[Rfam]
RNA sequence: CGGCUGUAAUGGUCAUAUUGGAUGAAGGCGUGUCACAAUUUCCCGAUAUGGUUUCCACCAAAUCCGUUAGCUCCCUCCCGCUGACGCCCAGCUCGAACACUGCGGUAGAUUCCGAUCACUCGCUCGGGAAACCAGCGACGCUGACUCGGCUCUAAGCAAUAGGGGAUCACACUUCAGGAAGGCUUCACUUCGCAGAGAAAUUCCCACCGUCGCGUGGCGGGUUGGAUUACGAUCGCGGGGGGCUUGGUGGACUGUAUUAGGAUGGACAUGACAACUCUUUUUUU
Numbered sequence: 001c002g003g004c005u006g007u008a009a010u011g012g013u014c015a016u017a018u019u020g021g022a023u024g025a026a027g028g029c030g031u032g033u034c035a036c037a038a039u040u041u042c043c044c045g046a047u048a049u050g051g052u053u054u055c056c057a058c059c060a061a062a063u064c065c066g067u068u069a070g071c072u073c074c075c076u077c078c079c080g081c082u083g084a085c086g087c088c089c090a091g092c093u094c095g096a097a098c099a100c101u102g103c104g105g106u107a108g109a110u111u112c113c114g115a116u117c118a119c120u121c122g123c124u125c126g127g128g129a130a131a132c133c134a135g136c137g138a139c140g141c142u143g144a145c146u147c148g149g150c151u152c153u154a155a156g157c158a159a160u161a162g163g164g165g166a167u168c169a170c171a172c173u174u175c176a177g178g179a180a181g182g183c184u185u186c187a188c189u190u191c192g193c194a195g196a197g198a199a200a201u202u203c204c205c206a207c208c209g210u211c212g213c214g215u216g217g218c219g220g221g222u223u224g225g226a227u228u229a230c231g232a233u234c235g236c237g238g239g240g241g242g243c244u245u246g247g248u249g250g251a252c253u254g255u256a257u258u259a260g261g262a263u264g265g266a267c268a269u270g271a272c273a274a275c276u277c278u279u280u281u282u283u284u
Stems, first nucleotide, its partner, number of pairs: 002014003020281003024277002027272001029270005041262003045258010059070001061068002074242003078238004083233001085231002088225008097215002100212001102210004112149004116144003120138005126133002152156001162205006172197003179190003
RNA: Fungal signal recognition particle RNA
Organism: Ceratocystis platani